RNA sequence: AUAAUACGAAUAUUUACUGCUCGUAUAUGCCCGAUAAUACGGUUCGGGUGUCUCUACCAGGAUGCCGUAAACAACCUGACUACGAGUAUGUAGUUCGAUAUU
Numbered sequence: 001a002u003a004a005u006a007c008g009a010a011u012a013u014u015u016a017c018u019g020c021u022c023g024u025a026u027a028u029g030c031c032c033g034a035u036a037a038u039a040c041g042g043u044u045c046g047g048g049u050g051u052c053u054c055u056a057c058c059a060g061g062a063u064g065c066c067g068u069a070a071a072c073a074a075c076c077u078g079a080c081u082a083c084g085a086g087u088a089u090g091u092a093g094u095u096c097g098a099u100a101u102u
Base pairs, nucleotide, nucleotide: 018088019087020086021085022084023083024082025081029049030048031047032046033045034044058078059077060076061075063073064072
This 102-nucleotide RNA sequence from Caloramator sp. E03 belongs to the Rfam family "Purine riboswitch aptamer". Taxonomically the source falls in Caloramator (Bacteria, Bacillati, Eubacteriales, Clostridiaceae).